[Rfam]
Rfam assigns this 97-nucleotide RNA sequence from Zhihengliuella flava to the family "TPP riboswitch aptamer (THI element)".
RNA sequence: CCGAGUGGCACGGGGUGCCCCCCGCGAGGGGCUGAGAGAACACCCGCACACACCUGAUCUAGUUCGUACUAGCGGAGGGAUGUCGCUUCAUGGAUUC
Numbered sequence: 001c002c003g004a005g006u007g008g009c010a011c012g013g014g015g016u017g018c019c020c021c022c023c024g025c026g027a028g029g030g031g032c033u034g035a036g037a038g039a040a041c042a043c044c045c046g047c048a049c050a051c052a053c054c055u056g057a058u059c060u061a062g063u064u065c066g067u068a069c070u071a072g073c074g075g076a077g078g079g080a081u082g083u084c085g086c087u088u089c090a091u092g093g094a095u096u097c
Stems, first nucleotide, its partner, number of pairs: 006085005011046004016040001017032005053078003059072004
Dot-bracket structure: .....(((((((((.((((((......))))).......)..))))......(((...((((......))))...)))..)))))............
About this RNA:
The source organism's lineage runs through Bacteria, Actinomycetota, Micrococcales, Micrococcaceae and Zhihengliuella. Pairs were carried over by alignment from the consensus structure, which is taken from published work. It scores 58 bits against the family's covariance model.